[Rfam]
Background
The record is a 78-nucleotide RNA from Oceanodroma tethys, which matches "Small nucleolar RNA SNORD69" in Rfam. The base pairs follow the family's consensus structure. The family's RNA type in Rfam is C/D-box small nucleolar RNA. The match comes from Rfam's covariance-model search (38 bits). Rfam describes the family as follows. snoRNA HBII-210 belongs to the C/D family of snoRNAs.
RNA sequence: UACACAAAGCAUAUAGCGAGAAAGCGCGGAAACUGACUCUGUAAGAAGUGCCUUCAGUCCAACACUGAGCUUUGUGUC
Numbered sequence: 001u002a003c004a005c006a007a008a009g010c011a012u013a014u015a016g017c018g019a020g021a022a023a024g025c026g027c028g029g030a031a032a033c034u035g036a037c038u039c040u041g042u043a044a045g046a047a048g049u050g051c052c053u054u055c056a057g058u059c060c061a062a063c064a065c066u067g068a069g070c071u072u073u074g075u076g077u078c
Stems, first nucleotide, its partner, number of pairs: 002077009